[Rfam]
A member of the RNA family "Guanidine-II riboswitch aptamer (mini-ykkC)" from Polaromonas sp. CG9_12, 45 nucleotides long.
RNA sequence: GGCGCCGGACGACCGGCGCCUGUUCUUGCCCGGCAGGACGACCUG
Numbered sequence: 001g002g003c004g005c006c007g008g009a010c011g012a013c014c015g016g017c018g019c020c021u022g023u024u025c026u027u028g029c030c031c032g033g034c035a036g037g038a039c040g041a042c043c044u045g
Stems, first nucleotide, its partner, number of pairs: 001020008034045004
Dot-bracket structure: ((((((((....)))))))).............((((....))))
The organism belongs to Polaromonas, within Bacteria. For this family Rfam cites "Identification of 22 candidate structured RNAs in bacteria using the CMfinder comparative genomics pipeline" (Weinberg et al., Nucleic Acids Res, 2007). Rfam describes the family as follows. Simpler in structure and has fewer highly conserved nucleotide positions than the ykkC-yxkD leader. Gene Ontology term of the family: regulation of gene expression.